[Rfam]
RNA: Small nucleolar RNA SNORD18
RNA sequence: AGUGUGUGAUGAUUGCCUUGGUCCGUGUUUCUGAAAAUCUCUGAUUUUAAACAAUGGCAAAGUCUGACACU
Numbered sequence: 001a002g003u004g005u006g007u008g009a010u011g012a013u014u015g016c017c018u019u020g021g022u023c024c025g026u027g028u029u030u031c032u033g034a035a036a037a038u039c040u041c042u043g044a045u046u047u048u049a050a051a052c053a054a055u056g057g058c059a060a061a062g063u064c065u066g067a068c069a070c071u
Base pairs, nucleotide, nucleotide: 001071002070003069004068